[Rfam]
The record is a 65-nucleotide RNA sequence from Bacillus cereus, which matches "DUF3800-VIII RNA" in Rfam. By type it is a small RNA. The source organism's lineage runs through Bacteria, Bacilli, Bacillaceae, Bacillus and Bacillus cereus. Rfam's curators put it in the seed alignment. Bacteroidetes, Cyanobacteria, Firmicutes, Planctomycetes (1 example), Proteobacteria, Tenericutes (1 example).
RNA sequence: UGAGCUUGACUCUAAUCGAAGGCUUACGUUCCACGUGGGCUACUUACUAGAUUGAGUGGGGCUCA
Numbered sequence: 001u002g003a004g005c006u007u008g009a010c011u012c013u014a015a016u017c018g019a020a021g022g023c024u025u026a027c028g029u030u031c032c033a034c035g036u037g038g039g040c041u042a043c044u045u046a047c048u049a050g051a052u053u054g055a056g057u058g059g060g061g062c063u064c065a
Stems, first nucleotide, its partner, number of pairs: 001065007009057004014053004021041009